[Rfam]
RNA sequence: GACGUGGCAUACAAGGUCCCAAUCUUAACGACCGUGGGGCGACCCACCUGUAGGCCGAUUGGGAUGCCGAUGUCGCGUCGUGCGUUUUGAAAAACGAC
Numbered sequence: 001g002a003c004g005u006g007g008c009a010u011a012c013a014a015g016g017u018c019c020c021a022a023u024c025u026u027a028a029c030g031a032c033c034g035u036g037g038g039g040c041g042a043c044c045c046a047c048c049u050g051u052a053g054g055c056c057g058a059u060u061g062g063g064a065u066g067c068c069g070a071u072g073u074c075g076c077g078u079c080g081u082g083c084g085u086u087u088u089g090a091a092a093a094a095c096g097a098c
Base pairs, nucleotide, nucleotide: 001079002078003077004076005075006074007073008072009071010070015068016067019062020061021060022059023058024057029053034047035046036045037044038043083096084095085094